[Rfam]
RNA: MIR2629 microRNA precursor family
RNA sequence: AGAUUUGAAAUUCCUCGGCAGUUAACUGCAGCCGGUUCUUCAAAAUUUCGGCAGUUAACUGCCGAGGGCAUU
Numbered sequence: 001a002g003a004u005u006u007g008a009a010a011u012u013c014c015u016c017g018g019c020a021g022u023u024a025a026c027u028g029c030a031g032c033c034g035g036u037u038c039u040u041c042a043a044a045a046u047u048u049c050g051g052c053a054g055u056u057a058a059c060u061g062c063c064g065a066g067g068g069c070a071u072u
Stems, first nucleotide, its partner, number of pairs: 012068002015065015